[Rfam]
RNA: Small nucleolar RNA SNORA75
RNA sequence: ACCUUCUCAUGAGCUCCUCUUAAUCUUACCCAUGAUUCUGUAUGGAUUCGCACGAGAAGCAGAGCUAAUGCUCAGUUAGAACAGGCCUGCCAUAUUUGCAUAUUGGCAUUGCCUAUGUCUGCUGUGCAACAAGU
Numbered sequence: 001a002c003c004u005u006c007u008c009a010u011g012a013g014c015u016c017c018u019c020u021u022a023a024u025c026u027u028a029c030c031c032a033u034g035a036u037u038c039u040g041u042a043u044g045g046a047u048u049c050g051c052a053c054g055a056g057a058a059g060c061a062g063a064g065c066u067a068a069u070g071c072u073c074a075g076u077u078a079g080a081a082c083a084g085g086c087c088u089g090c091c092a093u094a095u096u097u098g099c100a101u102a103u104u105g106g107c108a109u110u111g112c113c114u115a116u117g118u119c120u121g122c123u124g125u126g127c128a129a130c131a132a133g134u
Stems, first nucleotide, its partner, number of pairs: 003059006013051002015046003022037004070127002073124003088108004093102002